Annotation: Rfam assigns this 45-nucleotide sequence from Drymodes brunneopygia to the family "Histone 3' UTR stem-loop". A search with the family's covariance model found it, with a score of 38 bits.

RNA sequence: GCAAAGGCUCUUUUCAGAGCCACACACUUUGUCUUGAAAGGGCUA
Number, nucleotide and partner (000 for none) at each position: 001g000002c000003a000004a000005a000006g021007g020008c019009u018010c017011u016012u000013u000014u000015c000016a011017g010018a009019g008020c007021c006022a000023c000024a000025c000026a000027c000028u000029u000030u000031g000032u000033c000034u000035u000036g000037a000038a000039a000040g000041g000042g000043c000044u000045a000
Rfam 15.1 lists 44,596 matches to the family in 976 species. The organism belongs to Drymodes, within Eukaryota.